[Rfam]
Nucleotides: 108
Base pairs, nucleotide, nucleotide: 001047002046003045004044012039013038014037015036016035018033019032020031021030022029024078025077026076027075059103060102082091083090084089
Number, partner (000 for none) and nucleotide at each position: 001047g002046g003045a004044c005000g006000a007000a008000g009000a010000u011000g012039a013038u014037g015036a016035g017000a018033u019032a020031c021030u022029u023000g024078u025077c026076a027075u028000g029022a030021g031020g032019u033018a034000g035016c036015u037014c038013a039012u040000a041000g042000g043000a044004g045003u046002u047001c048000c049000a050000u051000u052000g053000g054000g055000u056000u057000c058000a059103a060102u061000a062000u063000g064000u065000u066000c067000a068000c069000c070000a071000c072000g073000a074000c075027a076026u077025g078024a079000a080000u081000a082091g083090g084089c085000u086000a087000a088000u089084g090083c091082u092000g093000a094000a095000a096000g097000a098000a099000a100000a101000c102060a103059u104000a105000u106000u107000u108000u